[Rfam]
RNA sequence: CAUGAAACAACGUCUGUUCUUCUUCGCAUUCUUCUUUAUCUUCCCCAUCUCGGGGGGGCGAUUCGUCAUAUAAGAAGCACGCGAAGACGAAUAAGCAGGCCUCCCCAAACCGGGAGGCCUUUUUUAU
Numbered sequence: 001c002a003u004g005a006a007a008c009a010a011c012g013u014c015u016g017u018u019c020u021u022c023u024u025c026g027c028a029u030u031c032u033u034c035u036u037u038a039u040c041u042u043c044c045c046c047a048u049c050u051c052g053g054g055g056g057g058g059c060g061a062u063u064c065g066u067c068a069u070a071u072a073a074g075a076a077g078c079a080c081g082c083g084a085a086g087a088c089g090a091a092u093a094a095g096c097a098g099g100c101c102u103c104c105c106c107a108a109a110c111c112g113g114g115a116g117g118c119c120u121u122u123u124u125u126a127u
Stems, first nucleotide, its partner, number of pairs: 016092004021087007029079001031077004036073004042056004057067004097120009
The family of this 127-nucleotide RNA sequence from Mangrovibacter sp. MFB070 is "Phenylalanine leader peptide". The literature on the family includes a 1978 paper in Proc Natl Acad Sci U S A by Zurawski et al., "Nucleotide sequence of the leader region of the phenylalanine operon of Escherichia coli". The family's RNA type in Rfam is cis-regulatory leader. Rfam links the family to the GO term cellular amino acid metabolic process.